The record is a 46-nucleotide sequence from Solanum commersonii, which matches "MIR7991 microRNA precursor family" in Rfam. The family has 2 seed sequences and 299 matches in Rfam 15.1. The family's consensus secondary structure was predicted with RNAalifold. Taxonomically the source falls in Solanum (Eukaryota, Tracheophyta, lamiids, Solanales).

RNA sequence: GUGAGGUCGGAAUUUUAAUGAAUUACAAUAAAACCCGACCUCUUGA
Numbered sequence: 001g002u003g004a005g006g007u008c009g010g011a012a013u014u015u016u017a018a019u020g021a022a023u024u025a026c027a028a029u030a031a032a033a034c035c036c037g038a039c040c041u042c043u044u045g046a
Base pairs, nucleotide, nucleotide: 001044003042004041005040006039007038008037009036010035013033014032015031016030017029019027020026